[Rfam]
RNA sequence: GGACCGACCCUGCGCAACAGAAGGAUGCAAACCCCGCCAGGUCCGGAAGGAAGCAACGGUAAGCAUUUAAUUCUGUGUGCCGCAGUAAGUCGGUCCCUU
Numbered sequence: 001g002g003a004c005c006g007a008c009c010c011u012g013c014g015c016a017a018c019a020g021a022a023g024g025a026u027g028c029a030a031a032c033c034c035c036g037c038c039a040g041g042u043c044c045g046g047a048a049g050g051a052a053g054c055a056a057c058g059g060u061a062a063g064c065a066u067u068u069a070a071u072u073c074u075g076u077g078u079g080c081c082g083c084a085g086u087a088a089g090u091c092g093g094u095c096c097c098u099u
Base pairs, nucleotide, nucleotide: 004093005092006091007090008089010085011084012083013082014081015077017076018075019074020073021072022071023068024067025066026065027064028063034059035058036057042051043050044049
RNA: Bacterial small signal recognition particle RNA